RNA sequence: AGCUGCGUGCCCAACUGACAUGGUGUACUAUUCUUUCGCCUUUCACUAUAAAAAAAAAAAAAAAAAAAAGAGGAUACCGUGGGCUGAGCACACUGAGCAGCUUACAUCAGUUUCUAACGGCCCUUCGCUCCGUCGAAGUG
Numbered sequence: 001a002g003c004u005g006c007g008u009g010c011c012c013a014a015c016u017g018a019c020a021u022g023g024u025g026u027a028c029u030a031u032u033c034u035u036u037c038g039c040c041u042u043u044c045a046c047u048a049u050a051a052a053a054a055a056a057a058a059a060a061a062a063a064a065a066a067a068a069a070g071a072g073g074a075u076a077c078c079g080u081g082g083g084c085u086g087a088g089c090a091c092a093c094u095g096a097g098c099a100g101c102u103u104a105c106a107u108c109a110g111u112u113u114c115u116a117a118c119g120g121c122c123c124u125u126c127g128c129u130c131c132g133u134c135g136a137a138g139u140g
Base pairs, nucleotide, nucleotide: 003100004099005098006097008090009089010088012086013085015083016082018080029076030075031074032073033072034071035070036069118140123138124137125136126135127134